Notes
The record is a 50-nucleotide RNA from Polerovirus BWYV, which matches "Exoribonuclease-resistant RNA (xrRNA) plant-infecting virus (class 3)" in Rfam. The family's consensus secondary structure is taken from published work.
[Rfam]
RNA sequence: CACUAGCCAAGCACACGUAAGUUGCAAGCAUUGGAAGUCAAGUCUUACAC
Numbered sequence: 001c002a003c004u005a006g007c008c009a010a011g012c013a014c015a016c017g018u019a020a021g022u023u024g025c026a027a028g029c030a031u032u033g034g035a036a037g038u039c040a041a042g043u044c045u046u047a048c049a050c
Base pairs, nucleotide, nucleotide: 007034008033010032011029012028017048018047019046020045021044

Exoribonuclease-resistant RNA (xrRNA) plant-infecting virus (class 3) is a ncRNA that was reported in Plant viruses. Taxonomically the source falls in Polerovirus BWYV (Viruses, Pisoniviricetes, Solemoviridae, Polerovirus). A reference for the family is Gezelle et al. (2024), "The pseudoknot structure of a viral RNA reveals a conserved mechanism for programmed exoribonuclease resistance", bioRxiv [Preprint].